Rfam assigns this 76-nucleotide sequence from Saccoglossus kowalevskii to the family "mir-9/mir-79 microRNA precursor family". Rfam 15.1 lists 5,647 matches to the family in 934 species. The family's consensus secondary structure was predicted with RNAalifold. It is one of the family's seed sequences.
RNA sequence: CUCGUUUUCUCUUUGGUUAUCUAGCUGUAUGAGUGUACAUGACAUUAUAAAGCUAGGUUACCAAAGACAAAAACAG
Numbered sequence: 001c002u003c004g005u006u007u008u009c010u011c012u013u014u015g016g017u018u019a020u021c022u023a024g025c026u027g028u029a030u031g032a033g034u035g036u037a038c039a040u041g042a043c044a045u046u047a048u049a050a051a052g053c054u055a056g057g058u059u060a061c062c063a064a065a066g067a068c069a070a071a072a073a074c075a076g
Base pairs, nucleotide, nucleotide: 001076002075005072007070008069010067011066012065013064014063015062016061017060019058020057021056022055023054024053025052026051028049029048030047031046032045
Dot-bracket structure: ((..(.((.((((((((.((((((((.(((((............))))).)))))))).)))))))).)).)..))